RNA sequence: UCAACCGCGAUGGGAGAACCGGCAGGGCCGAUGGUCCGACCCGGUGCCGAAGGAGCAACCGCCCCGGAAACUCUCAGGCCCAAGGACCGUCGCGGUUCG
Numbered sequence: 001u002c003a004a005c006c007g008c009g010a011u012g013g014g015a016g017a018a019c020c021g022g023c024a025g026g027g028c029c030g031a032u033g034g035u036c037c038g039a040c041c042c043g044g045u046g047c048c049g050a051a052g053g054a055g056c057a058a059c060c061g062c063c064c065c066g067g068a069a070a071c072u073c074u075c076a077g078g079c080c081c082a083a084g085g086a087c088c089g090u091c092g093c094g095g096u097u098c099g
Stems, first nucleotide, its partner, number of pairs: 006094008019044004046079003049075002053073003059067002